[Rfam]
RNA sequence: AAGAGUCUGGAGUUAAUAAAACUAAGAAAAUUAACUUGACAACAAA
Numbered sequence: 001a002a003g004a005g006u007c008u009g010g011a012g013u014u015a016a017u018a019a020a021a022c023u024a025a026g027a028a029a030a031u032u033a034a035c036u037u038g039a040c041a042a043c044a045a046a
Base pairs, nucleotide, nucleotide: 008039010037011036012035013034014033015032016031017030

Description
A member of the RNA family "Plastid-rpl16 group II-D1 intron" from Rhynchospora breviuscula, 46 nucleotides long. Plastid-rpl16 is a non-coding RNA (ncRNA) recognised in plastids. It was recognised in and intronic region of a ribosome rpl16 gene. The family has 538 seed sequences and 1,446 matches in Rfam 15.1.